Plastid-psbA-3 3UTR RNA: a 53-nucleotide sequence from Lactuca sativa. Rfam describes the family as follows. Plastid psbA-3 is a non-coding RNA (ncRNA) present in plastids. It was identified in inverted repeat sequences in the 3 prime untranslate region (3UTR) of photosystem II quinone-binding protein (psbA).
RNA sequence: GAGCAAUAACGCCCUCUUGAUAAAACAAGAGGGAAGCUAUUGCUCCUUUUUUU
Numbered sequence: 001g002a003g004c005a006a007u008a009a010c011g012c013c014c015u016c017u018u019g020a021u022a023a024a025a026c027a028a029g030a031g032g033g034a035a036g037c038u039a040u041u042g043c044u045c046c047u048u049u050u051u052u053u
Stems, first nucleotide, its partner, number of pairs: 001045008010036001014031006
The family's consensus secondary structure was predicted with LocARNA. Its Rfam clan is "Plastid-psbA 3UTR RNA clan". For this family Rfam cites "Retrograde signaling in plants: A critical review focusing on the GUN pathway and beyond" (Richter et al., Plant Commun, 2023). It is annotated as a cis-regulatory element.